[Rfam]
Nucleotides: 093
Stems, first nucleotide, its partner, number of pairs: 003091004009085002016078006023071004028066004033061003
Number, partner (000 for none) and nucleotide at each position: 001000a002000u003091g004090g005089a006088g007000c008000u009085u010084c011000g012000g013000c014000a015000a016078g017077g018076g019075u020074g021073c022000u023071u024070g025069a026068c027000c028066c029065u030064a031063c032000u033061a034060c035059c036000c037000g038000a039000u040000g041000a042000u043000g044000a045000a046000a047000u048000g049000u050000c051000a052000u053000a054000u055000u056000c057000g058000c059035g060034g061033u062000u063031g064030u065029a066028g067000a068026g069025u070024c071023a072000u073021g074020c075019a076018c077017c078016u079000c080000u081000g082000c083000g084010g085009a086000g087000u088006c089005u090004c091003u092000u093000g